Description:
A member of the RNA family "MIR397 microRNA precursor family" from Quercus lobata, 124 nucleotides long. NCBI's taxonomy places the organism under Eukaryota, Mesangiospermae, eudicotyledons, Pentapetalae, Quercus.
RNA sequence: UGAAGAAACAUCAUUGAGUGCAGCGUUGAUGAAAGUGUGCGUCUGUUUCCUAUUUUCUAUAGGGAGAAUCAUGGGCCAGUGUUGUGGGACAAUUUCAUUAGCGCUGCACUCAAUCAUGUUUUUU
Number, nucleotide and partner (000 for none) at each position: 001u000002g000003a000004a000005g000006a121007a120008a119009c118010a117011u116012c000013a114014u113015u112016g111017a110018g109019u108020g107021c106022a105023g104024c103025g102026u101027u100028g099029a000030u097031g096032a095033a094034a093035g000036u000037g000038u000039g000040c000041g000042u000043c000044u000045g000046u000047u000048u000049c000050c000051u000052a000053u000054u000055u000056u000057c000058u000059a000060u000061a000062g000063g000064g000065a000066g000067a000068a000069u000070c000071a000072u000073g000074g000075g000076c000077c000078a000079g000080u000081g000082u000083u000084g000085u000086g000087g000088g000089a000090c000091a000092a000093u034094u033095u032096c031097a030098u000099u028100a027101g026102c025103g024104c023105u022106g021107c020108a019109c018110u017111c016112a015113a014114u013115c000116a011117u010118g009119u008120u007121u006122u000123u000124u000